[Rfam]
RNA sequence: CAAUUAAACGGGAAAAGUUGUAGCGCUGUAUGUUUAAUUAUUUCAUAAGCGUAUAGCUUUUCCCCUUAGUUG
Numbered sequence: 001c002a003a004u005u006a007a008a009c010g011g012g013a014a015a016a017g018u019u020g021u022a023g024c025g026c027u028g029u030a031u032g033u034u035u036a037a038u039u040a041u042u043u044c045a046u047a048a049g050c051g052u053a054u055a056g057c058u059u060u061u062c063c064c065c066u067u068a069g070u071u072g
Stems, first nucleotide, its partner, number of pairs: 003070005010064003014060002018056005026049002029047004
A member of the RNA family "mir-965 microRNA precursor family" from Operophtera brumata, 72 nucleotides long. On this family, see Huang et al., Bioorg Khim 2012: "The regulation of silkworm fibroin L chain production by miRNA-965 and miRNA-1926 in insect cells". Gene Ontology terms of the family: miRNA-mediated post-transcriptional gene silencing and RISC complex. The base pairs follow the family's consensus structure, which was predicted with RNAalifold. The match comes from Rfam's covariance-model search (75 bits).